RNA sequence: AUGCAGGUUAAGUUACAAUGUAGCUGUGAAGUGCUGUAUUGUCGUUCCCCCUGCAAAAAGGAAAGUGUUUCCUACUAUCCCUGUCUGCUUGGAUCCCACAGCAGGCAGGGACGCUUGGCUUCAUACAG
Numbered sequence: 001a002u003g004c005a006g007g008u009u010a011a012g013u014u015a016c017a018a019u020g021u022a023g024c025u026g027u028g029a030a031g032u033g034c035u036g037u038a039u040u041g042u043c044g045u046u047c048c049c050c051c052u053g054c055a056a057a058a059a060g061g062a063a064a065g066u067g068u069u070u071c072c073u074a075c076u077a078u079c080c081c082u083g084u085c086u087g088c089u090u091g092g093a094u095c096c097c098a099c100a101g102c103a104g105g106c107a108g109g110g111a112c113g114c115u116u117g118g119c120u121u122c123a124u125a126c127a128g
Stems, first nucleotide, its partner, number of pairs: 003054005015042010080109004085104004
RNA: Small nucleolar RNA SNORA63